[Rfam]
RNA: Small nucleolar RNA snR191
Organism: Tetrapisispora phaffii
RNA sequence: UACCAAAAUUCUUUGUCAGGAUCUAUUUGCGUUUAGAUUUCUAAACAAUAAUACGAAUGGGUCUGUUAAAAUUUUGGAAGAUUGAUAUUAUUCGCCCAUAAUCAUGCCUCCUUCGUUUUGAAGGAACUUUUGAUUAUAUUUAGGAGGAUAACUGCCGUUUUGGUGGUACACCUCCGCCUUUUUAGAAUAACUAACGAACUUAUGAGUUGAACUUUAGCAGACUUUUAUUAGUCUUUUCAUGCUUUUGCUUCGUAGUAAAGAACGUUACACCU
Numbered sequence: 001u002a003c004c005a006a007a008a009u010u011c012u013u014u015g016u017c018a019g020g021a022u023c024u025a026u027u028u029g030c031g032u033u034u035a036g037a038u039u040u041c042u043a044a045a046c047a048a049u050a051a052u053a054c055g056a057a058u059g060g061g062u063c064u065g066u067u068a069a070a071a072u073u074u075u076g077g078a079a080g081a082u083u084g085a086u087a088u089u090a091u092u093c094g095c096c097c098a099u100a101a102u103c104a105u106g107c108c109u110c111c112u113u114c115g116u117u118u119u120g121a122a123g124g125a126a127c128u129u130u131u132g133a134u135u136a137u138a139u140u141u142a143g144g145a146g147g148a149u150a151a152c153u154g155c156c157g158u159u160u161u162g163g164u165g166g167u168a169c170a171c172c173u174c175c176g177c178c179u180u181u182u183u184a185g186a187a188u189a190a191c192u193a194a195c196g197a198a199c200u201u202a203u204g205a206g207u208u209g210a211a212c213u214u215u216a217g218c219a220g221a222c223u224u225u226u227a228u229u230a231g232u233c234u235u236u237u238c239a240u241g242c243u244u245u246u247g248c249u250u251c252g253u254a255g256u257a258a259a260g261a262a263c264g265u266u267a268c269a270c271c272u
Stems, first nucleotide, its partner, number of pairs: 003077005019064010031046005088190006098137007109125006143175005151167007193266004199260003208252004216243003220233003